[Rfam]
The record is an 85-nucleotide RNA, which matches "c-di-GMP-II-GCG riboswitch aptamer" in Rfam. It is one of the family's seed sequences. For this family Rfam cites "Bioinformatic analysis of riboswitch structures uncovers variant classes with altered ligand specificity" (Weinberg et al., Proc Natl Acad Sci U S A, 2017). Its family is annotated with cyclic-di-GMP binding and regulation of gene expression in the Gene Ontology.
RNA sequence: CCAGUACGGGAAGCGAAGACACGUGAUCCGCCCCGGUCGCCGUACCGGAUCACGUCGAGCAGUGGCGAGCCCGGUCCCGUGUGAG
Numbered sequence: 001c002c003a004g005u006a007c008g009g010g011a012a013g014c015g016a017a018g019a020c021a022c023g024u025g026a027u028c029c030g031c032c033c034c035g036g037u038c039g040c041c042g043u044a045c046c047g048g049a050u051c052a053c054g055u056c057g058a059g060c061a062g063u064g065g066c067g068a069g070c071c072c073g074g075u076c077c078c079g080u081g082u083g084a085g
Stems, first nucleotide, its partner, number of pairs: 001085001004082007013060002021055008035072002037068005